[Rfam]
RNA: Small nucleolar RNA SNORD19
Organism: Geococcyx californianus
RNA sequence: GAAAAAUGAUGAUAUUGUAACUGCUUCCUAUUAUUACAGUGAAGACCUCAGAUCCAACUCUGAUUUCACUCUUGUU
Numbered sequence: 001g002a003a004a005a006a007u008g009a010u011g012a013u014a015u016u017g018u019a020a021c022u023g024c025u026u027c028c029u030a031u032u033a034u035u036a037c038a039g040u041g042a043a044g045a046c047c048u049c050a051g052a053u054c055c056a057a058c059u060c061u062g063a064u065u066u067c068a069c070u071c072u073u074g075u076u
Stems, first nucleotide, its partner, number of pairs: 001067004